[Rfam]
RNA: c-di-AMP riboswitch aptamer (ydaO/yuaA leader)
RNA sequence: GCGGGCGGCACGCAGAACCCCUCUUCUGGUGGUGGGGACGGAGAACCCAGGCAGUACGGACCCCCCGGCCACGUGGUCAGGGUGUCCUUGGGGUGAAGCCGCUACGCGGCCGGGCCAUCUUUCGGCGCCCGAACCCGACAGGUCACUCUUCGCAGGCGGAACCGAAAGGCCGC
Dot-bracket structure: ..........(((....(((..............))).(((((....((((...................................))))(((.....((((...))))..((((...........))))...)))...........)))))...)))...............
Numbered sequence: 001g002c003g004g005g006c007g008g009c010a011c012g013c014a015g016a017a018c019c020c021c022u023c024u025u026c027u028g029g030u031g032g033u034g035g036g037g038a039c040g041g042a043g044a045a046c047c048c049a050g051g052c053a054g055u056a057c058g059g060a061c062c063c064c065c066c067g068g069c070c071a072c073g074u075g076g077u078c079a080g081g082g083u084g085u086c087c088u089u090g091g092g093g094u095g096a097a098g099c100c101g102c103u104a105c106g107c108g109g110c111c112g113g114g115c116c117a118u119c120u121u122u123c124g125g126c127g128c129c130c131g132a133a134c135c136c137g138a139c140a141g142g143u144c145a146c147u148c149u150u151c152g153c154a155g156g157c158g159g160a161a162c163c164g165a166a167a168g169g170c171c172g173c
Stems, first nucleotide, its partner, number of pairs: 011158003018037003039152005048090004091136003099109004112130004